Rfam assigns this 83-nucleotide RNA sequence from Roseovarius sp. TE539 to the family "Glycine riboswitch aptamer". It scores 48 bits against the family's covariance model. Pairs were carried over by alignment from the consensus structure.
RNA sequence: ACAGGCAACUCUGGAGAGAUCCCGGAUCACGUCCGGGGCGCCGAAGGGAUAGCGAUCUCAGGCGAAAGGACAGAGGGGGCAUC
Number, nucleotide and partner (000 for none) at each position: 001a000002c000003a000004g000005g000006c078007a000008a000009c075010u074011c073012u072013g071014g000015a000016g000017a000018g000019a000020u038021c037022c036023c035024g000025g000026a000027u000028c000029a000030c000031g000032u000033c000034c000035g023036g022037g021038g020039c000040g063041c062042c061043g059044a058045a000046g000047g057048g056049a000050u000051a000052g000053c000054g000055a000056u048057c047058u044059c043060a000061g042062g041063c040064g000065a000066a000067a000068g000069g000070a000071c013072a012073g011074a010075g009076g000077g000078g006079g000080c000081a000082u000083c000